Gammaprotebacteria rimP leader: a 102-nucleotide RNA sequence from Edwardsiella hoshinae. The organism belongs to Edwardsiella, within Bacteria. On this family, see Naville and Gautheret, Genome Biol 2010: "Premature terminator analysis sheds light on a hidden world of bacterial transcriptional attenuation". It scores 101 bits against the family's covariance model. It is annotated as a cis-regulatory leader.
RNA sequence: UCCCGCUUGGCGGUAUAUAGGGUCCAGUUGCAUAAAGCCCCGAUUAUUCGGGGUUUUUUGUUAUCUGACAACAGAAUCACUGGGCUAUAAGGCCCUUUUUUU
Numbered sequence: 001u002c003c004c005g006c007u008u009g010g011c012g013g014u015a016u017a018u019a020g021g022g023u024c025c026a027g028u029u030g031c032a033u034a035a036a037g038c039c040c041c042g043a044u045u046a047u048u049c050g051g052g053g054u055u056u057u058u059u060g061u062u063a064u065c066u067g068a069c070a071a072c073a074g075a076a077u078c079a080c081u082g083g084g085c086u087a088u089a090a091g092g093c094c095c096u097u098u099u100u101u102u
Stems, first nucleotide, its partner, number of pairs: 034057009082095004